[Rfam]
The family of this 212-nucleotide RNA from Paenibacillus thalictri is "glmS glucosamine-6-phosphate activated ribozyme aptamer".
The organism belongs to Paenibacillus, within Bacteria.
Pairs were carried over by alignment from the consensus structure, which is taken from published work.
A reference for the family is Winkler et al. (2004), "Control of gene expression by a natural metabolite-responsive ribozyme", Nature.
This entry contains a glucosamine-6-phosphate activated ribozyme that is found in the mRNA for GlmS. GlmS is an enzyme that uses fructose-6-phosphate and glutamine to generate glucosamine-6-phosphate. The ribozyme catalyses self cleavage of the glmS mRNA that is thought to regulate GlmS activity.
By type it is a riboswitch.
It scores 71 bits against the family's covariance model.

Nucleotides: 212
Stems, first nucleotide, its partner, number of pairs: 020092006101132005109121004133151005156202006170188005176183002
Number, partner (000 for none) and nucleotide at each position: 001000a002000a003000g004000u005000u006000c007000a008000u009000a010000c011000a012000a013000g014000c015000g016000c017000c018000a019000g020092a021091g022090c023089u024088u025087g026000g027000c028000g029000a030000g031000g032000c033000u034000g035000a036000u037000u038000g039000a040000a041000a042000u043000g044000g045000a046000a047000c048000u049000g050000u051000u052000c053000g054000g055000u056000u057000u058000g059000u060000u061000a062000g063000a064000c065000c066000g067000a068000c069000a070000g071000c072000g073000a074000u075000g076000g077000a078000g079000a080000u081000a082000g083000c084000u085000c086000g087025c088024a089023a090022g091021c092020u093000g094000a095000c096000g097000a098000g099000g100000u101132g102131a103130a104129g105128g106000u107000g108000u109121u110120c111119g112118a113000a114000a115000c116000a117000u118112u119111c120110g121109g122000c123000g124000g125000g126000g127000a128105c129104c130103u131102u132101c133151c134150g135149g136148u137147a138000a139000u140000a141000u142000u143000c144000c145000a146000g147137u148136g149135c150134c151133g152000c153000u154000a155000a156202g157201c158200a159199g160198a161197g162000u163000g164000g165000c166000a167000a168000a169000a170188a171187g172186c173185u174184c175000a176183g177182g178000g179000u180000g181000a182177c183176c184174g185173g186172g187171c188170u189000g190000a191000c192000a193000a194000g195000a196000c197161c198160u199159c200158u201157g202156c203000a204000u205000g206000g207000a208000u209000u210000c211000u212000c